The record is a 91-nucleotide RNA from Dorcoceras hygrometricum, which matches "mir-156 microRNA precursor family" in Rfam. Lineage of the source: Eukaryota > Streptophyta > Gunneridae > Loxocarpinae > Dorcoceras. This family represents the plant microRNA (miRNA) precursor mir-156. Gene Ontology terms of the family: miRNA-mediated post-transcriptional gene silencing and RISC complex.
[Rfam]
Nucleotides: 091
Base pairs, nucleotide, nucleotide: 001091002090003089004088005087006086007085008084010081011080012079014077015076016075017074018073019072020071021070024067025066
Number, partner (000 for none) and nucleotide at each position: 001091g002090u003089g004088a005087c006086a007085g008084a009000a010081g011080a012079g013000a014077g015076u016075g017074a018073g019072c020071a021070c022000a023000a024067a025066u026000g027000g028000u029000g030000u031000u032000u033000u034000c035000u036000u037000g038000c039000a040000u041000g042000a043000a044000a045000g046000a047000u048000c049000u050000g051000u052000a053000c054000a055000u056000g057000c058000u059000u060000g061000a062000a063000g064000c065000u066025a067024u068000g069000u070021g071020u072019g073018c074017u075016c076015a077014c078000g079012c080011u081010c082000u083000g084008u085007c086006u087005g088004u089003c090002a091001c